Record summary
The record is a 44-nucleotide sequence from Dendrobium catenatum, which matches "Plastid-rpoB 5UTR RNA" in Rfam. Plastid rpoB is a non-coding RNA (ncRNA) recognised in plastids. It was found in the 5 prime untranslated region (5UTR) of a chloroplast-encoded RNA polymerase subunit (rpoB) in plastids, suggesting a posible cis-regulatory function. Pairs were carried over by alignment from the consensus structure, which was predicted with LocARNA. By type it is a cis-regulatory element. Lineage of the source: Eukaryota > Tracheophyta > Spermatophyta > Magnoliopsida > Dendrobium. For this family Rfam cites "Retrograde signaling in plants: A critical review focusing on the GUN pathway and beyond" (Richter et al., Plant Commun, 2023).
RNA sequence: CCAUGCUGUUUUCUUCUAUUUUUAUCUUAUUCAUAGAAAGCAGA
Numbered sequence: 001c002c003a004u005g006c007u008g009u010u011u012u013c014u015u016c017u018a019u020u021u022u023u024a025u026c027u028u029a030u031u032c033a034u035a036g037a038a039a040g041c042a043g044a
Stems, first nucleotide, its partner, number of pairs: 006043006